Shown here is a 360-nucleotide sequence from Opacimonas viscosa, a member of the family "Bacterial RNase P class A".

[Rfam]
RNA sequence: GAAGUUGGCUAGACAAUCGCUGCCGCAAUAUGCGCUUUGUGUGCUUGUUGCGGGGGAGGAAAGUCCGGGCUCCAUAGGGUAGGGUGCCAGGUAACGCCUGGGCAGUAUUUAUACUGACGACCAGUGCAGCAGAGAGGAGACCGCCAGUUUCGGCUGGUAAGGGUGAAAGGGUGCGGUAAGAGCGCACCGCGUUUUUGGUAACAAAAACGGCAAGGUAAACUCCACCCGGAGCAAGACCAAAUAGGUUCCCUUGGUGUGACCCGCAUCGGGAACGGGUAGGUUGCUUGAGCCUGUGAGUGAUUGCAGGCCUAGACGAAUGAUUGUCCACGACAGAACCCGGCUUAUCGGCCAACUUCCACU
Number, nucleotide and partner (000 for none) at each position: 001g356002a355003a354004g353005u352006u351007g350008g349009c348010u347011a345012g325013a324014c323015a322016a321017u320018c319019g000020c056021u055022g000023c053024c052025g051026c050027a049028a048029u047030a046031u000032g000033c000034g000035c000036u000037u000038u000039g000040u000041g000042u000043g000044c000045u000046u030047g029048u028049u027050g026051c025052g024053g023054g000055g021056g020057a000058g000059g000060a000061a343062a342063g341064u000065c340066c339067g338068g337069g336070c231071u230072c229073c228074a000075u000076a000077g262078g261079g260080u259081a000082g227083g226084g225085u224086g223087c101088c100089a099090g098091g097092u000093a000094a000095c000096g000097c091098c090099u089100g088101g087102g118103c116104a115105g114106u113107a000108u000109u000110u000111a000112u000113a106114c105115u104116g103117a000118c102119g222120a221121c000122c000123a000124g220125u219126g216127c215128a000129g000130c000131a000132g000133a000134g000135a000136g000137g000138a000139g000140a000141c162142c161143g158144c157145c156146a155147g154148u153149u000150u000151c000152g000153g148154c147155u146156g145157g144158u143159a000160a000161g142162g141163g000164u000165g000166a000167a000168a000169g000170g188171g187172u186173g185174c184175g183176g000177u000178a000179a000180g000181a000182g000183c175184g174185c173186a172187c171188c170189g211190c209191g208192u207193u206194u205195u204196u203197g202198g000199u000200a000201a000202c197203a196204a195205a194206a193207a192208c191209g190210g000211c189212a000213a000214g000215g127216u126217a000218a000219a125220c124221u120222c119223c086224a085225c084226c083227c082228g073229g072230a071231g070232c000233a000234a000235g282236a281237c280238c279239a000240a000241a000242u000243a000244g000245g273246u272247u271248c270249c269250c268251u000252u000253g267254g266255u265256g264257u263258g000259a080260c079261c078262c077263g257264c256265a255266u254267c253268g250269g249270g248271a247272a246273c245274g000275g000276g000277u000278a000279g238280g237281u236282u235283g000284c000285u000286u000287g000288a000289g308290c307291c306292u305293g304294u303295g302296a301297g000298u000299g000300a000301u296302u295303g294304c293305a292306g291307g290308c289309c000310u000311a000312g000313a000314c000315g000316a000317a000318u000319g018320a017321u016322u015323g014324u013325c012326c000327a000328c000329g000330a000331c000332a000333g000334a000335a000336c069337c068338c067339g066340g065341c063342u062343u061344a000345u011346c000347g010348g009349c008350c007351a006352a005353c004354u003355u002356c001357c000358a000359c000360u000
Notes: The match comes from Rfam's covariance-model search (329 bits).